[Rfam]
A member of the RNA family "c-di-GMP-I riboswitch aptamer" from Paenibacillus oceani, 93 nucleotides long.

RNA sequence: UUGGAAUAAAGGCAAACCCGCUGAAAAGCGGAGACGCAAAGCUACAGGGGCUAAAACGGACUUGCACGUCCGCGAUGCCAGCCAGCUGCCCGA
Numbered sequence: 001u002u003g004g005a006a007u008a009a010a011g012g013c014a015a016a017c018c019c020g021c022u023g024a025a026a027a028g029c030g031g032a033g034a035c036g037c038a039a040a041g042c043u044a045c046a047g048g049g050g051c052u053a054a055a056a057c058g059g060a061c062u063u064g065c066a067c068g069u070c071c072g073c074g075a076u077g078c079c080a081g082c083c084a085g086c087u088g089c090c091c092g093a
Stems, first nucleotide, its partner, number of pairs: 012037002018031005040087004047083002049079003057072005
The source organism's lineage runs through Bacteria, Bacillati, Bacilli, Paenibacillaceae and Paenibacillus.